[Rfam]
RNA sequence: AGAGUUCUUGCUUCAACAGUAUUUGAACGGAACCCU
Number, nucleotide and partner (000 for none) at each position: 001a036002g035003a000004g033005u032006u031007c030008u029009u000010g028011c000012u027013u026014c025015a024016a023017c000018a000019g000020u000021a000022u000023u016024u015025g014026a013027a012028c010029g008030g007031a006032a005033c004034c000035c002036u001